[Rfam]
The record is a 91-nucleotide sequence from Streptococcus mutans, which matches "Trans-activating crRNA" in Rfam. On this family, see Jinek et al., Science 2012: "A Programmable Dual-RNA-Guided DNA Endonuclease in Adaptive Bacterial Immunity". The organism belongs to Streptococcus mutans, within Bacteria. It is annotated as a CRISPR RNA. Pairs were carried over by alignment from the consensus structure. Rfam's curators write: RNA-guided Streptococcus pyogenes Cas9 (SpCas9) is a sequence-specific DNA endonuclease, the Trans-activating CRISPR RNA form an hybrid with the crRNA (crRNA/tracrRNA). The RNA hybrid acts as a guide for the endonuclease Cas9.

RNA sequence: UGUUGGAACUAUUCGAAACAACACAGCAAGUUAAAAUAAGGUUUAUCCGUAUUCAACUUGAAAAAGUGCGCACCGAUUCGGUGCUUUUUUA
Numbered sequence: 001u002g003u004u005g006g007a008a009c010u011a012u013u014c015g016a017a018a019c020a021a022c023a024c025a026g027c028a029a030g031u032u033a034a035a036a037u038a039a040g041g042u043u044u045a046u047c048c049g050u051a052u053u054c055a056a057c058u059u060g061a062a063a064a065a066g067u068g069c070g071c072a073c074c075g076a077u078u079c080g081g082u083g084c085u086u087u088u089u090u091a
Stems, first nucleotide, its partner, number of pairs: 001036001003034003009026002012023001040048002056067001058065002070084006